[Rfam]
The family of this 361-nucleotide RNA sequence from Maritalea myrionectae is "Alphaproteobacteria transfer-messenger RNA".
RNA sequence: CCCCUUUGCAAUCCGCAAAAAAGCACCUAUAUAGGAGGUGCUGGCAACAGCUAUGGCGAUAAAUGGAAAUCGGAAUAAACCAUUCGGACCCGGGGGCGGUACCCGGCGCCUCCACCAAAUAUCGGAUCGGCUUUUGAUAAGUCGCUGAUUAUGGGGGCGAAAUAGGAUCGACGAGGGUGUAAAGGGUUAUCUUUCGCUCGGCAUGGUACCACCGUAUCGGACCAUUAUGAUAGUUGCAAAUGACAACAUCGCUGAGGCACGUCUAGCUGCGUAAUGCGGUUCGACACCUCGAAUUAAAGCCCUUUUCCUCUAGCAAGGACUAGGCGGGGUUCGCAGGCACCUGGCAACAGAAGCCUGCACU
Numbered sequence: 001c002c003c004c005u006u007u008g009c010a011a012u013c014c015g016c017a018a019a020a021a022a023g024c025a026c027c028u029a030u031a032u033a034g035g036a037g038g039u040g041c042u043g044g045c046a047a048c049a050g051c052u053a054u055g056g057c058g059a060u061a062a063a064u065g066g067a068a069a070u071c072g073g074a075a076u077a078a079a080c081c082a083u084u085c086g087g088a089c090c091c092g093g094g095g096g097c098g099g100u101a102c103c104c105g106g107c108g109c110c111u112c113c114a115c116c117a118a119a120u121a122u123c124g125g126a127u128c129g130g131c132u133u134u135u136g137a138u139a140a141g142u143c144g145c146u147g148a149u150u151a152u153g154g155g156g157g158c159g160a161a162a163u164a165g166g167a168u169c170g171a172c173g174a175g176g177g178u179g180u181a182a183a184g185g186g187u188u189a190u191c192u193u194u195c196g197c198u199c200g201g202c203a204u205g206g207u208a209c210c211a212c213c214g215u216a217u218c219g220g221a222c223c224a225u226u227a228u229g230a231u232a233g234u235u236g237c238a239a240a241u242g243a244c245a246a247c248a249u250c251g252c253u254g255a256g257g258c259a260c261g262u263c264u265a266g267c268u269g270c271g272u273a274a275u276g277c278g279g280u281u282c283g284a285c286a287c288c289u290c291g292a293a294u295u296a297a298a299g300c301c302c303u304u305u306u307c308c309u310c311u312a313g314c315a316a317g318g319a320c321u322a323g324g325c326g327g328g329g330u331u332c333g334c335a336g337g338c339a340c341c342u343g344g345c346a347a348c349a350g351a352a353g354c355c356u357g358c359a360c361u
Stems, first nucleotide, its partner, number of pairs: 040051004055198005065191002068188004080177002084174003090106005107159007199214003204224003209220002327342004333358006

Clan: tRNA clan. The source organism's lineage runs through Bacteria, Alphaproteobacteria, Hyphomicrobiales, Devosiaceae and Maritalea. Bacterial tmRNA, also known as 10Sa RNA or SsrA, is named for its dual tRNA and mRNA-like properties. Its role is to liberate the mRNA from a stalled ribosome. To accomplish this part of the tmRNA is used as a reading frame that ends in a translation stop signal. The broken mRNA is replaced in the ribosome by the tmRNA and translation of the tmRNA leads to addition of a proteolysis tag to the incomplete protein enabling recognition by a protease. Recently a number of permuted tmRNA genes have been found encoded in two parts. tmRNAs have been identified in eubacteria and some chloroplasts but are absent from archaeal and eukaryote nuclear genomes. Rfam classes the family as a non-coding RNA gene. A search with the family's covariance model found it, with a score of 295 bits.